[Rfam]
RNA sequence: GUUGUCACCAGGGCUCGGCCGCUCCCCGUGGCCCCCCCUGACGGCGUGAGCAAGAGAAACAGGACUGCUUUGGGAGUGUCCUGUCUGAGUGGACGCGGGGGACCACGGUUUUCAGUCCGACA
Numbered sequence: 001g002u003u004g005u006c007a008c009c010a011g012g013g014c015u016c017g018g019c020c021g022c023u024c025c026c027c028g029u030g031g032c033c034c035c036c037c038c039u040g041a042c043g044g045c046g047u048g049a050g051c052a053a054g055a056g057a058a059a060c061a062g063g064a065c066u067g068c069u070u071u072g073g074g075a076g077u078g079u080c081c082u083g084u085c086u087g088a089g090u091g092g093a094c095g096c097g098g099g100g101g102a103c104c105a106c107g108g109u110u111u112u113c114a115g116u117c118c119g120a121c122a
Stems, first nucleotide, its partner, number of pairs: 005049004012042001014040001017038002024031002062118001064116004070108003076103002079100004083094004
The record is a 122-nucleotide sequence from Pteropus alecto, which matches "Small Cajal body specific RNA 23" in Rfam. Rfam's curators write: scaRNAs are a specific class of small nuclear RNAs which localise to the Cajal bodies and guide the modification of RNA polymerase II transcribed spliceosomal RNAs U1, U2, U4, U5 and U12. ACA11 belongs to the H/ACA box class of guide RNAs as it has the predicted hairpin-hinge-hairpin-tail structure,the conserved H/ACA-box motifs and is found associated with GAR1. H/ACA snRNAs are predicted to guide the modification of uridines to pseudouridines in substrate RNAs however, no target RNA has been identified for scaRNA ACA11. By type it is a small Cajal body RNA. Its family is annotated with nucleolus, Cajal body and RNA processing in the Gene Ontology. The source organism's lineage runs through Eukaryota, Bilateria, Laurasiatheria, Pteropodoidea and Pteropus. A reference for the family is Darzacq et al. (2002), "Cajal body-specific small nuclear RNAs: a novel class of 2'-O-methylation and pseudouridylation guide RNAs", EMBO J. The base pairs follow the family's consensus structure, which was predicted with RNAfold. A search with the family's covariance model found it, with a score of 71 bits.